[Rfam]
Rfam assigns this 107-nucleotide RNA from Diceros bicornis to the family "Small nucleolar RNA SNORD22".
RNA sequence: UCCCAGUGAGAAAACGUUUACACAUCUUACCUCCCGUCCUAGUCCCAGAGCCUGUAAAGGUGAGAAGGAACUGUUUGAGGAAUCAUAAGGAUUUCUAAACAUGGGAA
Numbered sequence: 001u002c003c004c005a006g007u008g009a010g011a012a013a014a015c016g017u018u019u020a021c022a023c024a025u026c027u028u029a030c031c032u033c034c035c036g037u038c039c040u041a042g043u044c045c046c047a048g049a050g051c052c053u054g055u056a057a058a059g060g061u062g063a064g065a066a067g068g069a070a071c072u073g074u075u076u077g078a079g080g081a082a083u084c085a086u087a088a089g090g091a092u093u094u095c096u097a098a099a100c101a102u103g104g105g106a107a
Base pairs, nucleotide, nucleotide: 001106002105003104004103
Notes
The literature on the family includes a 1996 paper in Nature by Tycowski et al., "A mammalian gene with introns instead of exons generating stable RNA products". It is annotated as a C/D-box small nucleolar RNA. The organism belongs to Diceros bicornis, within Eukaryota. The match comes from Rfam's covariance-model search (62 bits).